The family of this 73-nucleotide RNA from Sodalis glossinidius is "MicA sRNA". Rfam links the family to the GO term mRNA binding. The literature on the family includes a 2005 paper in Genes Dev by Udekwu et al., "Hfq-dependent regulation of OmpA synthesis is mediated by an antisense RNA". It is annotated as a small RNA.

RNA sequence: GAAAGAUGCGCAUUUGUUAUCAUCAUCCCUGUUAACAGGAAUGUUAAUUUAGCCACAGUUUCUGUGGCCUUUU
Numbered sequence: 001g002a003a004a005g006a007u008g009c010g011c012a013u014u015u016g017u018u019a020u021c022a023u024c025a026u027c028c029c030u031g032u033u034a035a036c037a038g039g040a041a042u043g044u045u046a047a048u049u050u051a052g053c054c055a056c057a058g059u060u061u062c063u064g065u066g067g068c069c070u071u072u073u
Base pairs, nucleotide, nucleotide: 024043025042026040027039029038030037031036052068053067054066055065056064057063